RNA sequence: AAGAUCAAACGAUGAAGGGAGCAUCUGUCGACAGUUUGAAUUUAAAUACUGUCAUGGAGUUGCUCUCUUUACCGGGUUGGUC
Numbered sequence: 001a002a003g004a005u006c007a008a009a010c011g012a013u014g015a016a017g018g019g020a021g022c023a024u025c026u027g028u029c030g031a032c033a034g035u036u037u038g039a040a041u042u043u044a045a046a047u048a049c050u051g052u053c054a055u056g057g058a059g060u061u062g063c064u065c066u067c068u069u070u071a072c073c074g075g076g077u078u079g080g081u082c
Stems, first nucleotide, its partner, number of pairs: 014070005020064003024058004030053003034049002
A member of the RNA family "mir-46/mir-47/mir-281 microRNA precursor family" from Lottia gigantea, 82 nucleotides long. It is one of the family's seed sequences. The organism belongs to Lottia, within Eukaryota. The family has 57 seed sequences and 307 matches in Rfam 15.1. Its family is annotated with RISC complex and miRNA-mediated post-transcriptional gene silencing in the Gene Ontology. The literature on the family includes a 2001 paper in Science by Lau et al., "An abundant class of tiny RNAs with probable regulatory roles in Caenorhabditis elegans".